[Rfam]
RNA sequence: AUUAGUAGCAGCAUAGCACGGUGAGAAUCCGUGCCGCCGAAAGGGCUAGGUUUCCUCGGCCAUGAUCGUCAGCCGAGGGUUAGUCGGUCCUAAGACCAGCCUCAACCGGAGCUGGUCAAAAGGGAAACAGGUUAAUAUUCCUGUACUUCUCUGUGCUAAAACUGACGUUUCCCGCUAGCGCUGGCAGGCCUGUCAGCCUGUUCAAGCUAAUAGCAUGCUGGAGAACCGUAAUGGUGAGAAAGCGUGUAAUAUGUGAUGACGUAAGCAGUGUCACGCGGGGAACCCGUGAAAAGGGAACAGAGGAUCCGUACCAAGAUCCGACACAGGUGCCCCUAGUUUAGAAGACUAAGGCGUGU
Numbered sequence: 001a002u003u004a005g006u007a008g009c010a011g012c013a014u015a016g017c018a019c020g021g022u023g024a025g026a027a028u029c030c031g032u033g034c035c036g037c038c039g040a041a042a043g044g045g046c047u048a049g050g051u052u053u054c055c056u057c058g059g060c061c062a063u064g065a066u067c068g069u070c071a072g073c074c075g076a077g078g079g080u081u082a083g084u085c086g087g088u089c090c091u092a093a094g095a096c097c098a099g100c101c102u103c104a105a106c107c108g109g110a111g112c113u114g115g116u117c118a119a120a121a122g123g124g125a126a127a128c129a130g131g132u133u134a135a136u137a138u139u140c141c142u143g144u145a146c147u148u149c150u151c152u153g154u155g156c157u158a159a160a161a162c163u164g165a166c167g168u169u170u171c172c173c174g175c176u177a178g179c180g181c182u183g184g185c186a187g188g189c190c191u192g193u194c195a196g197c198c199u200g201u202u203c204a205a206g207c208u209a210a211u212a213g214c215a216u217g218c219u220g221g222a223g224a225a226c227c228g229u230a231a232u233g234g235u236g237a238g239a240a241a242g243c244g245u246g247u248a249a250u251a252u253g254u255g256a257u258g259a260c261g262u263a264a265g266c267a268g269u270g271u272c273a274c275g276c277g278g279g280g281a282a283c284c285c286g287u288g289a290a291a292a293g294g295g296a297a298c299a300g301a302g303g304a305u306c307c308g309u310a311c312c313a314a315g316a317u318c319c320g321a322c323a324c325a326g327g328u329g330c331c332c333c334u335a336g337u338u339u340a341g342a343a344g345a346c347u348a349a350g351g352c353g354u355g356u
Stems, first nucleotide, its partner, number of pairs: 016034006035353004043332004049312002054078006063071002085308003089123002094117006101109002127144005147304008162294002167283009178271005183202006206254002215245005225235003260265001318327002334348004
RNA: Archaeal large subunit ribosomal RNA, nucleotides 1363 to 1718
Organism: Methanocella paludicola